[Rfam]
Shown here is a 224-nucleotide RNA sequence from Streptococcus pneumoniae, a member of the family "T-box leader". From the family's description: Uncharged tRNA acts as the effector for transcription antitermination of genes in the T-box leader family. Rfam's curators put it in the seed alignment. A reference for the family is Grundy et al. (1994), "Interaction between the acceptor end of tRNA and the T box stimulates antitermination in the Bacillus subtilis tyrS gene: a new role for the discriminator base", J Bacteriol.

RNA sequence: UCAACAAAUCAGAAAAGUAACUAUUUUUGAUCUUCAGGGAGCCUGUGGUGAUUGUGAAUAGGUGGUUGGAAGUAGUGAAAGUGGGCUGAUUUUGAAAAUGAAUUUGAAACAAUGAAAAUUCGGUGCGCACACCUUACAGUGCAGCUUGUUGUUAAACAAGGCAGAGAUGUAAAGGGAUAGUCCCUUUAUAAUUGAGGUGGCACCGCGUUACCAACGCCCUCACA
Numbered sequence: 001u002c003a004a005c006a007a008a009u010c011a012g013a014a015a016a017g018u019a020a021c022u023a024u025u026u027u028u029g030a031u032c033u034u035c036a037g038g039g040a041g042c043c044u045g046u047g048g049u050g051a052u053u054g055u056g057a058a059u060a061g062g063u064g065g066u067u068g069g070a071a072g073u074a075g076u077g078a079a080a081g082u083g084g085g086c087u088g089a090u091u092u093u094g095a096a097a098a099u100g101a102a103u104u105u106g107a108a109a110c111a112a113u114g115a116a117a118a119u120u121c122g123g124u125g126c127g128c129a130c131a132c133c134u135u136a137c138a139g140u141g142c143a144g145c146u147u148g149u150u151g152u153u154a155a156a157c158a159a160g161g162c163a164g165a166g167a168u169g170u171a172a173a174g175g176g177a178u179a180g181u182c183c184c185u186u187u188a189u190a191a192u193u194g195a196g197g198u199g200g201c202a203c204c205g206c207g208u209u210a211c212c213a214a215c216g217c218c219c220u221c222a223c224a
Stems, first nucleotide, its partner, number of pairs: 007091006020076006030066003041063006100121006122133003170188007194221004205217005